RNA sequence: AUUGAAAAAGGCAAACUUAUCGAAAGGUAAGGACGCAAAGCCAUGGGCCUAAAGUGAUGUGUAUAUCAUAUGGUUGCCAGGUUGCCAAUG
Numbered sequence: 001a002u003u004g005a006a007a008a009a010g011g012c013a014a015a016c017u018u019a020u021c022g023a024a025a026g027g028u029a030a031g032g033a034c035g036c037a038a039a040g041c042c043a044u045g046g047g048c049c050u051a052a053a054g055u056g057a058u059g060u061g062u063a064u065a066u067c068a069u070a071u072g073g074u075u076g077c078c079a080g081g082u083u084g085c086c087a088a089u090g
Base pairs, nucleotide, nucleotide: 003087004086011036012035016031017030018029019028020027021026034076039083040082041081042080044079045078046077047074048073049072
RNA: c-di-GMP-I-GGC riboswitch aptamer